The record is a 114-nucleotide sequence from Crystallibacter crystallopoietes, which matches "SAM (S-adenosyl methionine) riboswitch aptamer" in Rfam. The match comes from Rfam's covariance-model search (95 bits). Rfam describes the family as follows. SAM-IV is a mRNA element that regulates gene expression via direct sensing of S-adenosylmethionine (SAM or AdoMet). SAM-IV riboswitches share conserved nucleotide positions with the previously described SAM-I riboswitches sequence analysis and molecular recognition experiments suggest that SAM-I and SAM-IV riboswitches share similar ligand binding sites, but have different scaffolds. The family's consensus secondary structure is taken from published work. Rfam 15.1 lists 2,360 matches to the family in 1,305 species. Taxonomically the source falls in Crystallibacter (Bacteria, Actinomycetota, Actinomycetes, Micrococcaceae).
RNA sequence: GAUCAAGAGUCCCAACGACAAGCUCUGGCUGGUUGGGCGGCAACCCUCUCCCGUAGUGGGGUGCCCCAGAUGAGGAUCUGGCCGCGCACAAACCGUGUCCGGCAAGUACGGCCC
Numbered sequence: 001g002a003u004c005a006a007g008a009g010u011c012c013c014a015a016c017g018a019c020a021a022g023c024u025c026u027g028g029c030u031g032g033u034u035g036g037g038c039g040g041c042a043a044c045c046c047u048c049u050c051c052c053g054u055a056g057u058g059g060g061g062u063g064c065c066c067c068a069g070a071u072g073a074g075g076a077u078c079u080g081g082c083c084g085c086g087c088a089c090a091a092a093c094c095g096u097g098u099c100c101g102g103c104a105a106g107u108a109c110g111g112c113c114c
Stems, first nucleotide, its partner, number of pairs: 001078004009038001011037006021030002039065003044061003048056002081103004086098004